[Rfam]
Nucleotides: 126
Base pairs, nucleotide, nucleotide: 005057019046020045023042024041026039027038028037071118072117073116074115075114076113083104084103085102087100088099
Number, partner (000 for none) and nucleotide at each position: 001000c002000a003000c004000a005057g006000u007000c008000g009000a010000g011000u012000c013000a014000a015000a016000c017000c018000g019046a020045g021000c022000c023042c024041c025000c026039g027038u028037c029000c030000c031000c032000a033000u034000c035000a036000u037028g038027g039026c040000a041024g042023g043000a044000a045020c046019u047000g048000g049000c050000c051000a052000a053000a054000c055000g056000g057005c058000c059000a060000c061000a062000g063000c064000a065000a066000g067000g068000c069000c070000u071118g072117c073116a074115g075114c076113u077000c078000a079000u080000g081000g082000u083104c084103c085102c086000u087100g088099g089000g090000c091000c092000c093000u094000g095000g096000g097000a098000c099088c100087u101000g102085g103084g104083g105000a106000u107000a108000a109000g110000u111000u112000c113076a114075g115074c116073u117072g118071c119000a120000g121000a122000a123000a124000a125000g126000g

Rfam assigns this 126-nucleotide RNA from Neomonachus schauinslandi to the family "Small nucleolar RNA SNORA5". Clan: SNORA5 clan. By type it is an H/ACA-box small nucleolar RNA. ACA5 is a member of the H/ACA class of snoRNA that guide the sites of modification of uridines to pseudouridines. A search with the family's covariance model found it, with a score of 57 bits. NCBI's taxonomy places the organism under Eukaryota, Teleostomi, Theria, Eutheria, Neomonachus. The family's consensus secondary structure was predicted with RNAfold.